RNA: MIR6217 microRNA precursor family
RNA sequence: UGGCUACAGAAUAACUUAUUCCGUAGCUAUUUUGAGUUACGAUAAUUACUAUAUUAAUUUACGAGAUUAUAGUAACUCUGUACUAAGUGAUUUACUAUAACGUUACAAUCAGCAUCCCUAUGUGUUAUAGGAACCCAACUAUUAUAAAUACGUAUUGACAUUAUCGUAAAUUAGUAUAUAAAAUUAUCGUAAAUAGAGAUGACUACAGAAUAACUUAUUAUAUAUAUA
Numbered sequence: 001u002g003g004c005u006a007c008a009g010a011a012u013a014a015c016u017u018a019u020u021c022c023g024u025a026g027c028u029a030u031u032u033u034g035a036g037u038u039a040c041g042a043u044a045a046u047u048a049c050u051a052u053a054u055u056a057a058u059u060u061a062c063g064a065g066a067u068u069a070u071a072g073u074a075a076c077u078c079u080g081u082a083c084u085a086a087g088u089g090a091u092u093u094a095c096u097a098u099a100a101c102g103u104u105a106c107a108a109u110c111a112g113c114a115u116c117c118c119u120a121u122g123u124g125u126u127a128u129a130g131g132a133a134c135c136c137a138a139c140u141a142u143u144a145u146a147a148a149u150a151c152g153u154a155u156u157g158a159c160a161u162u163a164u165c166g167u168a169a170a171u172u173a174g175u176a177u178a179u180a181a182a183a184u185u186a187u188c189g190u191a192a193a194u195a196g197a198g199a200u201g202a203c204u205a206c207a208g209a210a211u212a213a214c215u216u217a218u219u220a221u222a223u224a225u226a227u228a
Base pairs, nucleotide, nucleotide: 001228002227005224006223008221010219011218012217013216014215016213017212018211019210020209021208023206024205025204026203028201029200030199031198032197033196037192038191039190040189041188042187043186044185045184046183047182050178051177052176053175054174055173056172057171058170059169060168061167062166065165066164067163069161070160074155079148081146082145087142088141089140091138092137093132095130096129097128098127099126100125101124102123103122